This 90-nucleotide sequence from Carpinus fangiana belongs to the Rfam family "Small nucleolar RNA snoR8a". NCBI's taxonomy places the organism under Eukaryota, Viridiplantae, Embryophyta, fabids, Carpinus. The family's RNA type in Rfam is C/D-box small nucleolar RNA. Gene Ontology terms of the family: RNA processing and nucleolus.
RNA sequence: CUGGUUGUGAUGAUUAUAUAAAAAUUCCGCGUUCUGGAUGCUAUUGCCAUGGCAUGAUAGACACGUUUACACCCAUAGAAUAUGAGCGCC
Numbered sequence: 001c002u003g004g005u006u007g008u009g010a011u012g013a014u015u016a017u018a019u020a021a022a023a024a025u026u027c028c029g030c031g032u033u034c035u036g037g038a039u040g041c042u043a044u045u046g047c048c049a050u051g052g053c054a055u056g057a058u059a060g061a062c063a064c065g066u067u068u069a070c071a072c073c074c075a076u077a078g079a080a081u082a083u084g085a086g087c088g089c090c
Stems, first nucleotide, its partner, number of pairs: 003090002006088002